[Rfam]
The record is a 199-nucleotide RNA from Cerasibacillus terrae, which matches "Group II catalytic intron D1-D4-5" in Rfam.
For this family Rfam cites "The ins and outs of group II introns" (Bonen and Vogel, Trends Genet, 2001).
From the family's description: Group II introns are found in rRNA, tRNA and mRNA of organelles in fungi, plants and protists, and also in mRNA in bacteria.
The match comes from Rfam's covariance-model search (106 bits).
Its family is annotated with Group II intron splicing in the Gene Ontology.

RNA sequence: GUGAACUCUUAACUCGAUAGGUAGAAUGAUAGGGUAGCGUCUUGAAGUGCUUUCUCUGAUACUCCGACAUGCGUUAUUCGAAUAUGUAUAAAAAUAGGGUGUGAAGCUCGAUAAAGACAGCUGAAAGUUGUCGUAGUACUAUGUAUGUUGUAACCGAAAUCUAGCCGGAGGUGGCUGGAAGAACGGUUAAGUCUACCUA
Numbered sequence: 001g002u003g004a005a006c007u008c009u010u011a012a013c014u015c016g017a018u019a020g021g022u023a024g025a026a027u028g029a030u031a032g033g034g035u036a037g038c039g040u041c042u043u044g045a046a047g048u049g050c051u052u053u054c055u056c057u058g059a060u061a062c063u064c065c066g067a068c069a070u071g072c073g074u075u076a077u078u079c080g081a082a083u084a085u086g087u088a089u090a091a092a093a094a095u096a097g098g099g100u101g102u103g104a105a106g107c108u109c110g111a112u113a114a115a116g117a118c119a120g121c122u123g124a125a126a127g128u129u130g131u132c133g134u135a136g137u138a139c140u141a142u143g144u145a146u147g148u149u150g151u152a153a154c155c156g157a158a159a160u161c162u163a164g165c166c167g168g169a170g171g172u173g174g175c176u177g178g179a180a181g182a183a184c185g186g187u188u189a190a191g192u193c194u195a196c197c198u199a
Stems, first nucleotide, its partner, number of pairs: 019052005031043004057195001065110003068103005074097005120192003127184003131180001132156002160179008